[Rfam]
RNA sequence: GUUGAGGGGAAUGUUGUCUGGUCCGAGACCUAACACCGGGCGGGAUGGCGGAUUCUGCUGCAGCUAAGCAAGCUAGGUGGGGGGUUUCGGACCAGGCUUCAUUCCCCCCAAC
Numbered sequence: 001g002u003u004g005a006g007g008g009g010a011a012u013g014u015u016g017u018c019u020g021g022u023c024c025g026a027g028a029c030c031u032a033a034c035a036c037c038g039g040g041c042g043g044g045a046u047g048g049c050g051g052a053u054u055c056u057g058c059u060g061c062a063g064c065u066a067a068g069c070a071a072g073c074u075a076g077g078u079g080g081g082g083g084g085u086u087u088c089g090g091a092c093c094a095g096g097c098u099u100c101a102u103u104c105c106c107c108c109c110a111a112c
Stems, first nucleotide, its partner, number of pairs: 001112004006107008016097006024089003

Shown here is a 112-nucleotide sequence from Oryza punctata, a member of the family "mir-166 microRNA precursor family".
A search with the family's covariance model found it, with a score of 76 bits.
A reference for the family is Reinhart et al. (2002), "MicroRNAs in plants", Genes Dev.
The base pairs follow the family's consensus structure, which was predicted with PFOLD.
Taxonomically the source falls in Oryza (Eukaryota, Streptophytina, Mesangiospermae, Oryzoideae).